[Rfam]
RNA sequence: AGCCGUGUGGUGAACACAAAGCGAACUAUUCUUUCGCCUUUUACUAAAGAAUACCGUGUGUUCGCCACUCAUAACGGCAUACGCUUAUUUUUGGAGGGUUUUUCCUGUAAAGGGGAAC
Numbered sequence: 001a002g003c004c005g006u007g008u009g010g011u012g013a014a015c016a017c018a019a020a021g022c023g024a025a026c027u028a029u030u031c032u033u034u035c036g037c038c039u040u041u042u043a044c045u046a047a048a049g050a051a052u053a054c055c056g057u058g059u060g061u062u063c064g065c066c067a068c069u070c071a072u073a074a075c076g077g078c079a080u081a082c083g084c085u086u087a088u089u090u091u092u093g094g095a096g097g098g099u100u101u102u103u104c105c106u107g108u109a110a111a112g113g114g115g116a117a118c
Base pairs, nucleotide, nucleotide: 003077004076005075006074008067009066010065011064012063013062014061015060016059017058018057027053028052029051030050031049032048033047034046101117102116103115104114105113
Dot-bracket structure: ..((((.(((((((((((........((((((((...........))))))))...)))))))))))......)))).......................(((((.......))))).
Shown here is a 118-nucleotide sequence from Aquilegia coerulea, a member of the family "U5 spliceosomal RNA".
It is annotated as a spliceosomal small nuclear RNA.
Taxonomically the source falls in Aquilegia (Eukaryota, Viridiplantae, Euphyllophyta, Magnoliopsida).
Gene Ontology terms of the family: spliceosomal tri-snRNP complex assembly and U5 snRNP.